[Rfam]
RNA sequence: UGUCAUAAGGGCUAGUAUUACCCUUAUGACAGAAUGUAGCAAGUAGCA
Numbered sequence: 001u002g003u004c005a006u007a008a009g010g011g012c013u014a015g016u017a018u019u020a021c022c023c024u025u026a027u028g029a030c031a032g033a034a035u036g037u038a039g040c041a042a043g044u045a046g047c048a
Base pairs, nucleotide, nucleotide: 001031002030003029004028005027006026007025008024009023010022011021